Shown here is an 81-nucleotide sequence from Oryzias latipes, a member of the family "Small nucleolar RNA SNORD79". Lineage of the source: Eukaryota > Craniata > Neoteleostei > Adrianichthyidae > Oryzias. It is annotated as a C/D-box small nucleolar RNA. The family's consensus secondary structure was predicted with PFOLD. snoRNA U79 or Z22 is found in intron 7 of the gas5 gene in humans and is also present in mice. A reference for the family is Galardi et al. (2002), "Purified box C/D snoRNPs are able to reproduce site-specific 2'-O-methylation of target RNA in vitro", Mol Cell Biol.
[Rfam]
RNA sequence: AACUGUUGAUGAUGAUUCUUGUUGUGAAACAAUGGGAAUCUCUCUGAGAAAAGUGAAGAGGACUUUUGUUCUGAUGCAGUG
Numbered sequence: 001a002a003c004u005g006u007u008g009a010u011g012a013u014g015a016u017u018c019u020u021g022u023u024g025u026g027a028a029a030c031a032a033u034g035g036g037a038a039u040c041u042c043u044c045u046g047a048g049a050a051a052a053g054u055g056a057a058g059a060g061g062a063c064u065u066u067u068g069u070u071c072u073g074a075u076g077c078a079g080u081g
Base pairs, nucleotide, nucleotide: 002080003079004078005077006076